[Rfam]
RNA sequence: CGAGAAAAUUGGUCUGUUGAUUCUUAUUUCGGUAAGGGUAGGAAAGUCCGGACACCAUAGAGCAGCAAAGCGGAUAACAUCCGUCGCCCGCGAGGGUAGGACAAGUGCAACAGAAAGCAGGUACAGUACGGCUGUAGUGAAACCAGGUAAACUCUUUGCGGUGCAAUGAUAAGUAUAUCGGUUUUUUUCAGAAAUGAAAAUCAGGAGCGGCUCGCUCUGAAAGCCGAGGGGUAAUCAGCUCAAGUUUUGCAGCAAUGUAAAGCGCAGAUAAAUAACAGACGUCCCGAUGUAUCGGGAGACAGAAUCCGGCUUACAGAUUUUCUCGUGGU
Numbered sequence: 001c002g003a004g005a006a007a008a009u010u011g012g013u014c015u016g017u018u019g020a021u022u023c024u025u026a027u028u029u030c031g032g033u034a035a036g037g038g039u040a041g042g043a044a045a046g047u048c049c050g051g052a053c054a055c056c057a058u059a060g061a062g063c064a065g066c067a068a069a070g071c072g073g074a075u076a077a078c079a080u081c082c083g084u085c086g087c088c089c090g091c092g093a094g095g096g097u098a099g100g101a102c103a104a105g106u107g108c109a110a111c112a113g114a115a116a117g118c119a120g121g122u123a124c125a126g127u128a129c130g131g132c133u134g135u136a137g138u139g140a141a142a143c144c145a146g147g148u149a150a151a152c153u154c155u156u157u158g159c160g161g162u163g164c165a166a167u168g169a170u171a172a173g174u175a176u177a178u179c180g181g182u183u184u185u186u187u188u189c190a191g192a193a194a195u196g197a198a199a200a201u202c203a204g205g206a207g208c209g210g211c212u213c214g215c216u217c218u219g220a221a222a223g224c225c226g227a228g229g230g231g232u233a234a235u236c237a238g239c240u241c242a243a244g245u246u247u248u249g250c251a252g253c254a255a256u257g258u259a260a261a262g263c264g265c266a267g268a269u270a271a272a273u274a275a276c277a278g279a280c281g282u283c284c285c286g287a288u289g290u291a292u293c294g295g296g297a298g299a300c301a302g303a304a305u306c307c308g309g310c311u312u313a314c315a316g317a318u319u320u321u322c323u324c325g326u327g328g329u
Base pairs, nucleotide, nucleotide: 001325002324003323004322005321006320007319008318009317010316011314012280013279014278015277016276017275018274020039021038022037023036024035025034026033027032044312045311046310048309049308050307051306052305053163054162055161056160060213061212062211063210065159066158067157068156069155070084071083072082073081074080085099086097087096088095089094100154101153105152106151107148108147122136123135124134125133126132127131167237168236169235170234178227179226180225181224182223204218205217206216207215208214244263245262246261247260248259249258250257251256
Record summary
Rfam assigns this 329-nucleotide RNA sequence from Chryseobacterium sp. Leaf180 to the family "Bacterial RNase P class A". The match comes from Rfam's covariance-model search (202 bits).